The record is a 109-nucleotide sequence from Juglans regia, which matches "MIR162_1 microRNA precursor family" in Rfam. Gene Ontology terms of the family: RISC complex and miRNA-mediated post-transcriptional gene silencing. The match comes from Rfam's covariance-model search (113 bits).

[Rfam]
RNA sequence: GCUGAAGUCACUGGAGGCAGCGGUUCAUCGACCUCUUCCUGAGAAUUUGUUGUGACAUUAACACAAAACAUGAAUCGGUCGAUAAACCUCUGCAUCCAGCGCUCACCCU
Numbered sequence: 001g002c003u004g005a006a007g008u009c010a011c012u013g014g015a016g017g018c019a020g021c022g023g024u025u026c027a028u029c030g031a032c033c034u035c036u037u038c039c040u041g042a043g044a045a046u047u048u049g050u051u052g053u054g055a056c057a058u059u060a061a062c063a064c065a066a067a068a069c070a071u072g073a074a075u076c077g078g079u080c081g082a083u084a085a086a087c088c089u090c091u092g093c094a095u096c097c098a099g100c101g102c103u104c105a106c107c108c109u
Stems, first nucleotide, its partner, number of pairs: 013097003018092003022088004027083007036074003